Notes
Small nucleolar RNA SNORA41: a 134-nucleotide RNA sequence from Phyllostomus discolor. For this family Rfam cites "RNomics: an experimental approach that identifies 201 candidates for novel, small, non-messenger RNAs in mouse" (Huttenhofer et al., EMBO J, 2001). Its family is annotated with nucleolus and RNA processing in the Gene Ontology. The family has 31 seed sequences and 676 matches in Rfam 15.1. The organism belongs to Phyllostomus, within Eukaryota. ACA41 is a member of the H/ACA class of snoRNA that guide the sites of modification of uridines to pseudouridines. Pairs were carried over by alignment from the consensus structure, which was predicted with PFOLD. By type it is an H/ACA-box small nucleolar RNA.
[Rfam]
RNA sequence: UUCCAUAGCUACUGGUGUACACUUGUUCUUAUAUUGACAGUUUCAGCAUUCCUCUGUGGGAAAGAAACUGUUAACAUGAUUAAACAUCUCUUUCCUAGCAAAACGGAAAGUGGGCAUAUAUGUGACAAACACAA
Numbered sequence: 001u002u003c004c005a006u007a008g009c010u011a012c013u014g015g016u017g018u019a020c021a022c023u024u025g026u027u028c029u030u031a032u033a034u035u036g037a038c039a040g041u042u043u044c045a046g047c048a049u050u051c052c053u054c055u056g057u058g059g060g061a062a063a064g065a066a067a068c069u070g071u072u073a074a075c076a077u078g079a080u081u082a083a084a085c086a087u088c089u090c091u092u093u094c095c096u097a098g099c100a101a102a103a104c105g106g107a108a109a110g111u112g113g114g115c116a117u118a119u120a121u122g123u124g125a126c127a128a129a130c131a132c133a134a
Base pairs, nucleotide, nucleotide: 003059004058005057006056018045021042023040024039025038074123075122076121077120078119087114088113089112090110091109092108093107094106095105